[Rfam]
DUF3800-I RNA: a 116-nucleotide RNA from Mycoplasma sp. 1654_15.
RNA sequence: UAAAAAAAUGUUAUAAUAUUAAUGUAAACAGAUAAGGUCAGGUACGUUUGUAUAAGUGUAAUGUAAGUGCACCCGCUUAUCUGGGCUCCUUCAUUUCGAAGGAGUUUUUUUAUUAU
Numbered sequence: 001u002a003a004a005a006a007a008a009u010g011u012u013a014u015a016a017u018a019u020u021a022a023u024g025u026a027a028a029c030a031g032a033u034a035a036g037g038u039c040a041g042g043u044a045c046g047u048u049u050g051u052a053u054a055a056g057u058g059u060a061a062u063g064u065a066a067g068u069g070c071a072c073c074c075g076c077u078u079a080u081c082u083g084g085g086c087u088c089c090u091u092c093a094u095u096u097c098g099a100a101g102g103a104g105u106u107u108u109u110u111u112a113u114u115a116u
Base pairs, nucleotide, nucleotide: 001022002020003019029083030082031081032080033079034078041074042073043052044051045050056072057071058070059069060068084106085105086104087103088102089101090100091099092098
The family's consensus secondary structure is taken from published work.
About the family: Actinobacteria, Firmicutes, Fusobacteria, Proteobacteria (1 example), Tenericutes (2 examples).